[Rfam]
A member of the RNA family "Potassium channel RNA editing signal" from Baryphthengus martii, 114 nucleotides long.
A search with the family's covariance model found it, with a score of 104 bits.
Pairs were carried over by alignment from the consensus structure, which is taken from published work.
The family has 85 seed sequences and 14,095 matches in Rfam 15.1.
Lineage of the source: Eukaryota > Chordata > Euteleostomi > Neoaves > Baryphthengus.
On this family, see Bhalla et al., Nat Struct Mol Biol 2004: "Control of human potassium channel inactivation by editing of a small mRNA hairpin".
RNA sequence: GUCGGCUACGGAGACAUGGUCCCCACCACCAUCGGGGGCAAAAUCGUGGGUUCCUUGUGCGCCAUCGCCGGCGUGCUAACGAUUGCCUUACCGGUGCCCGUCAUAGUCUCUAAC
Numbered sequence: 001g002u003c004g005g006c007u008a009c010g011g012a013g014a015c016a017u018g019g020u021c022c023c024c025a026c027c028a029c030c031a032u033c034g035g036g037g038g039c040a041a042a043a044u045c046g047u048g049g050g051u052u053c054c055u056u057g058u059g060c061g062c063c064a065u066c067g068c069c070g071g072c073g074u075g076c077u078a079a080c081g082a083u084u085g086c087c088u089u090a091c092c093g094g095u096g097c098c099c100g101u102c103a104u105a106g107u108c109u110c111u112a113a114c
Stems, first nucleotide, its partner, number of pairs: 001114002004111002008107002011104001013102003018097001021094001037077004049063003